[Rfam]
RNA: Selenocysteine transfer RNA
Organism: Peptostreptococcaceae bacterium AS15
Nucleotides: 091
Base pairs, nucleotide, nucleotide: 001091002090003089004088005087006086007085008084011026012025013024014023015022016021028044029043030042031041032040048064049063050062051061068082069081070080071079
Number, partner (000 for none) and nucleotide at each position: 001091g002090g003089g004088a005087a006086u007085a008084u009000u010000a011026a012025a013024a014023u015022g016021u017000u018000g019000g020000u021016g022015c023014a024013u025012u026011u027000c028044g029043u030042g031041g032040u033000c034000u035000u036000c037000a038000a039000a040032a041031c042030c043029a044028u045000u046000g047000u048064g049063a050062g051061a052000a053000u054000c055000a056000a057000a058000a059000a060000u061051u062050c063049u064048c065000u066000u067000g068082u069081a070080g071079g072000u073000u074000c075000g076000a077000u078000u079071c080070c081069u082068g083000c084008a085007u086006a087005u088004u089003c090002c091001c